The family of this 67-nucleotide RNA from Drosophila melanogaster is "Oocyte entry signal (OES) from oskar mRNA".
Lineage of the source: Eukaryota > Ecdysozoa > Ephydroidea > Drosophilini > Sophophora.
RNA sequence: UGGAAAAUUCGCUUGCACAAAAUCAACGCCGCGGCUGAUUUAUUAUUGAUGUGCUCAAGCAAAUUCA
Numbered sequence: 001u002g003g004a005a006a007a008u009u010c011g012c013u014u015g016c017a018c019a020a021a022a023u024c025a026a027c028g029c030c031g032c033g034g035c036u037g038a039u040u041u042a043u044u045a046u047u048g049a050u051g052u053g054c055u056c057a058a059g060c061a062a063a064u065u066c067a
Base pairs, nucleotide, nucleotide: 001067002066003065007064008063009062011060012059013058014057015054016053017052018051019050020041021040022039023038024037025036

A reference for the family is Jambor et al. (2014), "A stem-loop structure directs oskar mRNA to microtubule minus ends", RNA.